[Rfam]
RNA: Mason-Pfizer monkey virus packaging signal
RNA sequence: UGGCGCCCAACGUGGGGCUGGAUACUGGGGGCACAUCAUGAGGGAGACAACGGAAAAAGGAAGGAGUGCACUCGUUGAAUUUCGAGCAGUUCGGAGACGCACCACGGGAGCCUGCUGCGACCGAACCGAAGGUAAGUUGUGCCGUCCGAUCAUGGGACAAGAAUUGAGCCAGCAUCAGAUUUAUGUCAAGCAAUUGAGAGAGGCUCUAAAGACACGAGGAGUAAAGGUUAGGACUGAGGAUUUAUUUCAUUUCUUUGAUUUUGUAAAGGACAUUUGUCCCU
Numbered sequence: 001u002g003g004c005g006c007c008c009a010a011c012g013u014g015g016g017g018c019u020g021g022a023u024a025c026u027g028g029g030g031g032c033a034c035a036u037c038a039u040g041a042g043g044g045a046g047a048c049a050a051c052g053g054a055a056a057a058a059g060g061a062a063g064g065a066g067u068g069c070a071c072u073c074g075u076u077g078a079a080u081u082u083c084g085a086g087c088a089g090u091u092c093g094g095a096g097a098c099g100c101a102c103c104a105c106g107g108g109a110g111c112c113u114g115c116u117g118c119g120a121c122c123g124a125a126c127c128g129a130a131g132g133u134a135a136g137u138u139g140u141g142c143c144g145u146c147c148g149a150u151c152a153u154g155g156g157a158c159a160a161g162a163a164u165u166g167a168g169c170c171a172g173c174a175u176c177a178g179a180u181u182u183a184u185g186u187c188a189a190g191c192a193a194u195u196g197a198g199a200g201a202g203g204c205u206c207u208a209a210a211g212a213c214a215c216g217a218g219g220a221g222u223a224a225a226g227g228u229u230a231g232g233a234c235u236g237a238g239g240a241u242u243u244a245u246u247u248c249a250u251u252u253c254u255u256u257g258a259u260u261u262u263g264u265a266a267a268g269g270a271c272a273u274u275u276g277u278c279c280c281u
Stems, first nucleotide, its partner, number of pairs: 006030003012025003036050001039047001086133002091129002098123002103119001105117003140159002145156004165208002168204003215257007225243005266281001268279004